A member of the RNA family "Rubella virus 3' cis-acting element" from Rubivirus rubellae, 68 nucleotides long. The literature on the family includes a 1999 paper in J Virol by Chen and Frey, "Mutagenic analysis of the 3' cis-acting elements of the rubella virus genome". The organism belongs to Rubivirus rubellae, within Viruses. Rfam describes the family as follows. This family represents a cis-acting element found at the 3' UTR in the rubella virus. This family contains three conserved step loop structures. Rfam classes the family as a cis-regulatory element.

RNA sequence: UACUUGCGCGGCGCUAUUGCGCCGCGCUAGUGGGCCCCCGCGCGAAACCCGCACUAGCCCACUAGAUU
Numbered sequence: 001u002a003c004u005u006g007c008g009c010g011g012c013g014c015u016a017u018u019g020c021g022c023c024g025c026g027c028u029a030g031u032g033g034g035c036c037c038c039c040g041c042g043c044g045a046a047a048c049c050c051g052c053a054c055u056a057g058c059c060c061a062c063u064a065g066a067u068u
Stems, first nucleotide, its partner, number of pairs: 001032004006027009033060002036057001040052003